The family of this 54-nucleotide RNA sequence from Danio rerio is "UnaL2 LINE 3' element". The eel long interspersed element (LINE) UnaL2 and its partner short interspersed element (SINE) share a conserved 3' tail containing a stem-loop that is critical for their retrotransposition. Rfam classes the family as a cis-regulatory element. The family has 30 seed sequences and 493,311 matches in Rfam 15.1. It scores 60 bits against the family's covariance model. NCBI's taxonomy places the organism under Eukaryota, Gnathostomata, Actinopterygii, Cypriniformes, Danio.
RNA sequence: CAAUUGCAAUAUUGUAAGUGGCUUUGGAUAAAAGCGUCUGCUAAAUGACUAAAU
Numbered sequence: 001c002a003a004u005u006g007c008a009a010u011a012u013u014g015u016a017a018g019u020g021g022c023u024u025u026g027g028a029u030a031a032a033a034g035c036g037u038c039u040g041c042u043a044a045a046u047g048a049c050u051a052a053a054u
Base pairs, nucleotide, nucleotide: 013043014041015040016039021035022034023033024032025031